[Rfam]
About this RNA:
Shown here is a 76-nucleotide RNA sequence from Alligator mississippiensis, a member of the family "Mammalian CPEB3 ribozyme". From the family's description: The mammalian CPEB3 ribozyme is a self cleaving RNA located in the second intron of the CPEB3 gene which belongs to a family of genes regulating messenger RNA polyadenylation. On this family, see Salehi-Ashtiani et al., Science 2006: "A genomewide search for ribozymes reveals an HDV-like sequence in the human CPEB3 gene". Taxonomically the source falls in Alligator (Eukaryota, Sarcopterygii, Tetrapoda, Crocodylia).

RNA sequence: AGUUGCAAGGUCGAGGCCAUAGCAGAAGGGCUCACAUUGUGGCCUGUCAGAUUCCAGUGAACCUGCAAAUUCUACU
Numbered sequence: 001a002g003u004u005g006c007a008a009g010g011u012c013g014a015g016g017c018c019a020u021a022g023c024a025g026a027a028g029g030g031c032u033c034a035c036a037u038u039g040u041g042g043c044c045u046g047u048c049a050g051a052u053u054c055c056a057g058u059g060a061a062c063c064u065g066c067a068a069a070u071u072c073u074a075c076u
Stems, first nucleotide, its partner, number of pairs: 015044004021076002024073004028040001030038001048065003052061003